[Rfam]
RNA sequence: ACAGGCACUUGAUACUCUUGUGAUGUCACACAGAGAAGUGAUAGGGCAGAACCUGAGGGUCUGU
Numbered sequence: 001a002c003a004g005g006c007a008c009u010u011g012a013u014a015c016u017c018u019u020g021u022g023a024u025g026u027c028a029c030a031c032a033g034a035g036a037a038g039u040g041a042u043a044g045g046g047c048a049g050a051a052c053c054u055g056a057g058g059g060u061c062u063g064u
Stems, first nucleotide, its partner, number of pairs: 001064006008057002016046006023039002025031002

Shown here is a 64-nucleotide sequence from Molossus molossus, a member of the family "MAT2A 3'UTR stem loop B".